[Rfam]
RNA sequence: UCAGUUCAUGUAAACAUCCUACACUCAGCUGUAGUCGCGUUUACCACAGGCUGAGAGAAGGCUGUUUACUUUAACUGU
Numbered sequence: 001u002c003a004g005u006u007c008a009u010g011u012a013a014a015c016a017u018c019c020u021a022c023a024c025u026c027a028g029c030u031g032u033a034g035u036c037g038c039g040u041u042u043a044c045c046a047c048a049g050g051c052u053g054a055g056a057g058a059a060g061g062c063u064g065u066u067u068a069c070u071u072u073a074a075c076u077g078u
Base pairs, nucleotide, nucleotide: 002077003076004075005074006073008071010069011068012067013066014065015064016063018061019060020059022057024055025054026053027052028051029050030049

About this RNA: The record is a 78-nucleotide RNA from Merluccius polli, which matches "mir-30 microRNA precursor family" in Rfam. A reference for the family is Lagos-Quintana et al. (2001), "Identification of novel genes coding for small expressed RNAs", Science. NCBI's taxonomy places the organism under Eukaryota, Vertebrata, Teleostomi, Paracanthopterygii, Merluccius. This family consists of the mammalian microRNA (miRNA) precursor mir-30a.